[Rfam]
RNA: mir-129 microRNA precursor family
Organism: Silurus meridionalis
RNA sequence: ACGAAUCUUUUUGCGGUCUGGGCUUGCUGUUUAUCACAAUUCCUGGGAAGCCCUUACCCCAAAAAGCAUUUG
Numbered sequence: 001a002c003g004a005a006u007c008u009u010u011u012u013g014c015g016g017u018c019u020g021g022g023c024u025u026g027c028u029g030u031u032u033a034u035c036a037c038a039a040u041u042c043c044u045g046g047g048a049a050g051c052c053c054u055u056a057c058c059c060c061a062a063a064a065a066g067c068a069u070u071u072g
Base pairs, nucleotide, nucleotide: 007066008065009064010063011062012061013060015058016057017056020053021052022051023050025048027046028045